[Rfam]
RNA sequence: AGAGGUCACAAGUUUGAGGCCAAAGCAGAAGUGUUCACAGCGCGGCCUGUCAGGUUCCCGCAAAUCUGUGCAUGCUGCU
Numbered sequence: 001a002g003a004g005g006u007c008a009c010a011a012g013u014u015u016g017a018g019g020c021c022a023a024a025g026c027a028g029a030a031g032u033g034u035u036c037a038c039a040g041c042g043c044g045g046c047c048u049g050u051c052a053g054g055u056u057c058c059c060g061c062a063a064a065u066c067u068g069u070g071c072a073u074g075c076u077g078c079u
Base pairs, nucleotide, nucleotide: 018047019046020045021044024079025078026077027076028075030073031043032042033041051068052067053066054065055064056063
RNA: Mammalian CPEB3 ribozyme